U7 small nuclear RNA: a 62-nucleotide RNA sequence from Homo sapiens. Animal histone pre-mRNAs are spliced by a different mechanism than nuclear pre-mRNAs and self-splicing introns. On this family, see Mowry and Steitz, Science 1987: "Identification of the human U7 snRNP as one of several factors involved in the 3' end maturation of histone premessenger RNA's".
[Rfam]
RNA sequence: UAAUGUCAUAGCUCUUUUAAAAUUUGUUUAGCAGGCUUUCUGGUUUUUGCCGGAAAGCCCUC
Number, nucleotide and partner (000 for none) at each position: 001u000002a000003a000004u000005g000006u000007c000008a000009u000010a000011g000012c000013u000014c000015u000016u000017u000018u000019a000020a000021a000022a000023u000024u000025u000026g000027u000028u000029u000030a000031g000032c000033a000034g059035g058036c057037u056038u055039u054040c053041u052042g051043g050044u049045u000046u000047u000048u000049g044050c043051c042052g041053g040054a039055a038056a037057g036058c035059c034060c000061u000062c000